RNA sequence: UUCAACACCCAUCAAAGGAGUCGUUCCCCAUCGAGGAGCUACUUGACCAUAUUUUGAAUUU
Numbered sequence: 001u002u003c004a005a006c007a008c009c010c011a012u013c014a015a016a017g018g019a020g021u022c023g024u025u026c027c028c029c030a031u032c033g034a035g036g037a038g039c040u041a042c043u044u045g046a047c048c049a050u051a052u053u054u055u056g057a058a059u060u061u
Stems, first nucleotide, its partner, number of pairs: 018044004023039005
Dot-bracket structure: .................((((.(((((.......))))).)))).................
Rfam assigns this 61-nucleotide sequence from Nyssa sinensis to the family "Plastid-psbN 5UTR RNA". The source organism's lineage runs through Eukaryota, Tracheophyta, Mesangiospermae, eudicotyledons and Nyssa. The base pairs follow the family's consensus structure, which was predicted with LocARNA. A reference for the family is Zhelyazkova et al. (2012), "The primary transcriptome of barley chloroplasts: numerous noncoding RNAs and the dominating role of the plastid-encoded RNA polymerase", Plant Cell.